Overview: A member of the RNA family "DUF3800-V RNA", 97 nucleotides long.
[Rfam]
RNA sequence: CAGAGUUGGCAAUAAUACCUUUUGGGGCGCCAGUGUAUUCCCCGAACAGGUGUUUGGGUCACAACUCUGGAAUACCGCUUCAAAAGACGCCACUCUA
Numbered sequence: 001c002a003g004a005g006u007u008g009g010c011a012a013u014a015a016u017a018c019c020u021u022u023u024g025g026g027g028c029g030c031c032a033g034u035g036u037a038u039u040c041c042c043c044g045a046a047c048a049g050g051u052g053u054u055u056g057g058g059u060c061a062c063a064a065c066u067c068u069g070g071a072a073u074a075c076c077g078c079u080u081c082a083a084a085a086g087a088c089g090c091c092a093c094u095c096u097a
Stems, first nucleotide, its partner, number of pairs: 002096005009090002023082007030070004035065002042057006
It is one of the family's seed sequences. The family's RNA type in Rfam is small RNA.